[Rfam]
Nucleotides: 089
Stems, first nucleotide, its partner, number of pairs: 011071004016066002025061005075089005
Number, partner (000 for none) and nucleotide at each position: 001000a002000a003000u004000g005000a006000a007000u008000g009000a010000a011071c012070u013069c014068a015000g016066a017065c018000u019000a020000a021000g022000a023000a024000c025061g026060c027059c028058a029057c030000g031000c032000g033000g034000u035000u036000a037000c038000u039000c040000g041000u042000c043000g044000c045000a046000a047000a048000a049000c050000u051000a052000c053000u054000u055000u056000u057029g058028u059027g060026g061025c062000a063000a064000c065017g066016u067000a068014u069013g070012a071011g072000u073000g074000a075089c076088c077087a078086a079085c080000a081000u082000c083000g084000u085079g086078u087077u088076g089075g